[Rfam]
RNA sequence: UAGGCGGGUCACUCUAAGUUCGAAUACCAAGCCCUGCUGGAGAAUAGCUUGGUGUUCUACCUUACAGUGAUUUGAUUG
Numbered sequence: 001u002a003g004g005c006g007g008g009u010c011a012c013u014c015u016a017a018g019u020u021c022g023a024a025u026a027c028c029a030a031g032c033c034c035u036g037c038u039g040g041a042g043a044a045u046a047g048c049u050u051g052g053u054g055u056u057c058u059a060c061c062u063u064a065c066a067g068u069g070a071u072u073u074g075a076u077u078g
Base pairs, nucleotide, nucleotide: 006073007072008071009070010069011068012067013066015064016063017062025054026053027052028051029050030049031048032047
Rfam assigns this 78-nucleotide RNA from Nasonia vitripennis to the family "mir-971 microRNA precursor family". The base pairs follow the family's consensus structure, which was predicted with RNAalifold. The match comes from Rfam's covariance-model search (62 bits).